[Rfam]
RNA sequence: ACCUUAUAUAAAUGUAGUAACGCAAGACAGUUGCACAUUUCCCUGUAAGGUGAUGUUUUAACAGAAGUAUAAGCAAUAAGUCUUAUUGUGUGGCUACGAGUCGAAAUAAGAUAGGUUUAUAUGGAAUAGGUUAACCGUAAGACCUUGAGUUGAAAAACUUUAAAAUUAAACUAGAAAUCAAAUUUUUAAUUUUUUUUUAUUUUCUAGUUACGGUUGC
Numbered sequence: 001a002c003c004u005u006a007u008a009u010a011a012a013u014g015u016a017g018u019a020a021c022g023c024a025a026g027a028c029a030g031u032u033g034c035a036c037a038u039u040u041c042c043c044u045g046u047a048a049g050g051u052g053a054u055g056u057u058u059u060a061a062c063a064g065a066a067g068u069a070u071a072a073g074c075a076a077u078a079a080g081u082c083u084u085a086u087u088g089u090g091u092g093g094c095u096a097c098g099a100g101u102c103g104a105a106a107u108a109a110g111a112u113a114g115g116u117u118u119a120u121a122u123g124g125a126a127u128a129g130g131u132u133a134a135c136c137g138u139a140a141g142a143c144c145u146u147g148a149g150u151u152g153a154a155a156a157a158c159u160u161u162a163a164a165a166u167u168a169a170a171c172u173a174g175a176a177a178u179c180a181a182a183u184u185u186u187u188a189a190u191u192u193u194u195u196u197u198u199a200u201u202u203u204c205u206a207g208u209u210a211c212g213g214u215u216g217c
Stems, first nucleotide, its partner, number of pairs: 001051008010040006017034005022028001067122008081111007092102002095099001128145005134214006140166001147160005171207007180198003
The family of this 217-nucleotide RNA sequence is "IS605-orfB-I RNA". Rfam's curators put it in the seed alignment. It is annotated as a small RNA.